The family of this 75-nucleotide sequence from Streptomyces caatingaensis is "ASpks TB sRNA". The organism belongs to Streptomyces, within Bacteria. On this family, see Arnvig and Young, Mol Microbiol 2009: "Identification of small RNAs in Mycobacterium tuberculosis". The family has 77 seed sequences and 9,052 matches in Rfam 15.1. Rfam classes the family as an antisense RNA.
Nucleotides: 075
Base pairs, nucleotide, nucleotide: 015025016024017023031071033069038065039064043060044059045058047056048055049054
Number, partner (000 for none) and nucleotide at each position: 001000c002000u003000u004000g005000a006000g007000c008000g009000a010000a011000c012000c013000g014000a015025g016024c017023c018000a019000c020000a021000a022000c023017g024016g025015c026000c027000g028000c029000c030000c031071c032000u033069c034000c035000g036000g037000c038065c039064g040000g041000u042000c043060c044059u045058g046000a047056c048055c049054g050000u051000a052000g053000g054049u055048g056047g057000c058045c059044a060043g061000c062000a063000a064039c065038g066000c067000c068000u069033g070000c071031g072000c073000c074000u075000c